[Rfam]
RNA sequence: AGAGCGAGACGCGACUGGCGCAUUCGGUGGGAUCGACCACCAGGGAGCGGAGUGAGCGGAGGCCGGGCGCCUGGGUCUUCGCC
Numbered sequence: 001a002g003a004g005c006g007a008g009a010c011g012c013g014a015c016u017g018g019c020g021c022a023u024u025c026g027g028u029g030g031g032a033u034c035g036a037c038c039a040c041c042a043g044g045g046a047g048c049g050g051a052g053u054g055a056g057c058g059g060a061g062g063c064c065g066g067g068c069g070c071c072u073g074g075g076u077c078u079u080c081g082c083c
Base pairs, nucleotide, nucleotide: 005054006053010049011048012047015044016043017071018070019069020068021067027040028039029038030037060078061077062076063075064074